Record summary: Small nucleolar RNA SNORA77: a 132-nucleotide RNA from Varanus komodoensis. By type it is an H/ACA-box small nucleolar RNA. A reference for the family is Schattner et al. (2006), "A computational screen for mammalian pseudouridylation guide H/ACA RNAs", RNA. The source organism's lineage runs through Eukaryota, Sarcopterygii, Dipnotetrapodomorpha, Toxicofera and Varanus. From the family's description: ACA63 (SNORA77) is a member of the H/ACA class of snoRNAs that guide the sites of modification of uridines to pseudouridines. This snoRNA was identified by computational screening and its expression in mouse experimentally verified by Northern blot and primer extension analysis. ACA63 is proposed to guide the pseudouridylation of 18S rRNA U814. Its family is annotated with nucleolus and RNA processing in the Gene Ontology. It scores 55 bits against the family's covariance model.
RNA sequence: GCAGACUCACUCUGUGCUUGACUGCAAUAAACAGUCAUGGUGCUUUUUCCGUCUGCUAGAAUAAUAAUCCAGGAUGUUGUGAACACUUCUCUACUUAUGGAAGUCUGUUUCAAUUGAUCUUGGUACAUCAGA
Numbered sequence: 001g002c003a004g005a006c007u008c009a010c011u012c013u014g015u016g017c018u019u020g021a022c023u024g025c026a027a028u029a030a031a032c033a034g035u036c037a038u039g040g041u042g043c044u045u046u047u048u049c050c051g052u053c054u055g056c057u058a059g060a061a062u063a064a065u066a067a068u069c070c071a072g073g074a075u076g077u078u079g080u081g082a083a084c085a086c087u088u089c090u091c092u093a094c095u096u097a098u099g100g101a102a103g104u105c106u107g108u109u110u111c112a113a114u115u116g117a118u119c120u121u122g123g124u125a126c127a128u129c130a131g132a
Stems, first nucleotide, its partner, number of pairs: 001056006014043005019037002022034003069123007076114004081109001084107002089103002